This 131-nucleotide RNA from Ornithorhynchus anatinus belongs to the Rfam family "Small nucleolar RNA SNORA65". Clan: SNORA65 clan. Rfam classes the family as an H/ACA-box small nucleolar RNA. On this family, see Huttenhofer et al., EMBO J 2001: "RNomics: an experimental approach that identifies 201 candidates for novel, small, non-messenger RNAs in mouse". The organism belongs to Ornithorhynchus, within Eukaryota. From the family's description: U65 belongs to the H/ACA class of snoRNAs which are thought to guide the sites of modification of uridines to pseudouridines. The base pairs follow the family's consensus structure, which was predicted with RNAalifold.
Nucleotides: 131
Stems, first nucleotide, its partner, number of pairs: 005050006018037002022032002066124003070121001071119004076113002081109006089101003
Number, partner (000 for none) and nucleotide at each position: 001000c002000c003000c004000g005050c006049c007048a008047c009046u010045g011000u012000g013000c014000c015000u016000a017000a018037u019036c020000a021000c022032u023031a024000a025000u026000a027000a028000c029000g030000u031023u032022g033000g034000u035000g036019g037018g038000c039000a040000c041000a042000a043000u044000c045010c046009a047008g048007u049006g050005g051000u052000g053000a054000g055000c056000u057000g058000a059000u060000a061000u062000a063000a064000a065000a066124c067123c068122c069000c070121a071119g072118c073117u074116u075000a076113g077112g078000a079000a080000a081109c082108a083107g084106g085105g086104u087000u088000a089101u090100u091099c092000u093000g094000c095000u096000u097000g098000u099091g100090g101089a102000u103000g104086a105085c106084u107083c108082u109081g110000u111000g112077c113076c114000g115000a116074a117073a118072g119071c120000a121070u122068g123067g124066g125000a126000a127000c128000a129000a130000c131000c